Glycine riboswitch aptamer: an 88-nucleotide sequence from Rhizobium sp. BK251. NCBI's taxonomy places the organism under Bacteria, Pseudomonadati, Pseudomonadota, Hyphomicrobiales, Rhizobium.

RNA sequence: CCAACCUUGUUGGGAGAAGCCGGCCUGCGCCGGUGCCGAAGGAGCAACCGCCCCGGAAACUCUCAGGCAAAAGGACCAGCAGGGGGCA
Dot-bracket structure: .....((((((((......((((......)))).(((((..(((...((.....))...))))).))).......)))))))).....
Numbered sequence: 001c002c003a004a005c006c007u008u009g010u011u012g013g014g015a016g017a018a019g020c021c022g023g024c025c026u027g028c029g030c031c032g033g034u035g036c037c038g039a040a041g042g043a044g045c046a047a048c049c050g051c052c053c054c055g056g057a058a059a060c061u062c063u064c065a066g067g068c069a070a071a072a073g074g075a076c077c078a079g080c081a082g083g084g085g086g087c088a
Stems, first nucleotide, its partner, number of pairs: 006083008020033004035068003038064002042062003048056002